[Rfam]
RNA sequence: GGAAGUUCUCGGGGCGGGGUGUGAUUCCCCACCGGCGGUAAAGGUGAAGACCUGGUUUUUCUCCUAGCCCGCGAGCGCCUUCACCUCGGUGGAGGGUCCAGCAGAUUCCGGUGAGAUCCCGGAGCCGACGGUUACAGUCCGGACGUGAGAGAACACCA
Numbered sequence: 001g002g003a004a005g006u007u008c009u010c011g012g013g014g015c016g017g018g019g020u021g022u023g024a025u026u027c028c029c030c031a032c033c034g035g036c037g038g039u040a041a042a043g044g045u046g047a048a049g050a051c052c053u054g055g056u057u058u059u060u061c062u063c064c065u066a067g068c069c070c071g072c073g074a075g076c077g078c079c080u081u082c083a084c085c086u087c088g089g090u091g092g093a094g095g096g097u098c099c100a101g102c103a104g105a106u107u108c109c110g111g112u113g114a115g116a117u118c119c120c121g122g123a124g125c126c127g128a129c130g131g132u133u134a135c136a137g138u139c140c141g142g143a144c145g146u147g148a149g150a151g152a153a154c155a156c157c158a
Stems, first nucleotide, its partner, number of pairs: 005154006017029003031138002033127002035072004067125002075102002107123005129141003